[Rfam]
RNA sequence: GCUCCAGUAGACAAAUUGGUAAAGUCGCCUCUCUUUCAAAGAGGACAUUUUGCGAGUUCGAGGCUCGUCUGGAGUU
Numbered sequence: 001g002c003u004c005c006a007g008u009a010g011a012c013a014a015a016u017u018g019g020u021a022a023a024g025u026c027g028c029c030u031c032u033c034u035u036u037c038a039a040a041g042a043g044g045a046c047a048u049u050u051u052g053c054g055a056g057u058u059c060g061a062g063g064c065u066c067g068u069c070u071g072g073a074g075u076u
Stems, first nucleotide, its partner, number of pairs: 001075007010026003028044005052068005

The family of this 76-nucleotide RNA sequence from Synechococcus phage S-CRM01 is "tRNA". The match comes from Rfam's covariance-model search (51 bits). The family's RNA type in Rfam is transfer RNA. On this family, see Hou, Trends Biochem Sci 1993: "The tertiary structure of tRNA and the development of the genetic code". Lineage of the source: Viruses > Duplodnaviria > Heunggongvirae > Pantevenvirales > Kyanoviridae. Gene Ontology term of the family: triplet codon-amino acid adaptor activity.